[Rfam]
RNA: mir-60 microRNA precursor family
Organism: Caenorhabditis sp. 36 PRJEB53466
RNA sequence: CUCUUGAGCUGGAAUUGUGCCAUAAAAUCACGUACGAUCACGCGAUAUUAUGCACAUUUUCUAGUUCAAGAC
Dot-bracket structure: .(((((.(((((((..(((.(((((.(((.(((......))).))).))))))))...))))))).))))).